[Rfam]
RNA sequence: AGAGUCCUGAGAUGUACGUUGUGUUACCUGAAGUUUUGACCGAACAUUAUUUAUCCGGGAGUCUGAGUUUUCUGAUUGCGUAAAUGCCCCACCCUAUGACGGGUAAGGGGACUUACAAUACCGGAAACAGGACACCCACCUGCUGAGAGCGGGAUCAAAACUAAGGACCUAGAAGCAACGGCACCAUUGGGACUCUU
Dot-bracket structure: .(((((((((..(((.(((............((((.(((((...............(((.((((...(.(((((.(.....((...((((................))))..)).....).))))))..)))).)))..............)).))).))))...............))))))...)))))))))..
Numbered sequence: 001a002g003a004g005u006c007c008u009g010a011g012a013u014g015u016a017c018g019u020u021g022u023g024u025u026a027c028c029u030g031a032a033g034u035u036u037u038g039a040c041c042g043a044a045c046a047u048u049a050u051u052u053a054u055c056c057g058g059g060a061g062u063c064u065g066a067g068u069u070u071u072c073u074g075a076u077u078g079c080g081u082a083a084a085u086g087c088c089c090c091a092c093c094c095u096a097u098g099a100c101g102g103g104u105a106a107g108g109g110g111a112c113u114u115a116c117a118a119u120a121c122c123g124g125a126a127a128c129a130g131g132a133c134a135c136c137c138a139c140c141u142g143c144u145g146a147g148a149g150c151g152g153g154a155u156c157a158a159a160a161c162u163a164a165g166g167a168c169c170u171a172g173a174a175g176c177a178a179c180g181g182c183a184c185c186a187u188u189g190g191g192a193c194u195c196u197u
Stems, first nucleotide, its partner, number of pairs: 002195009013183003017180003032162004037157003040153002057137003061133004068127001070126005076120001082114002087110004
This 197-nucleotide RNA sequence from Neobacillus vireti belongs to the Rfam family "6S / SsrS RNA". A search with the family's covariance model found it, with a score of 91 bits. Lineage of the source: Bacteria > Bacillati > Caryophanales > Neobacillus > Neobacillus vireti.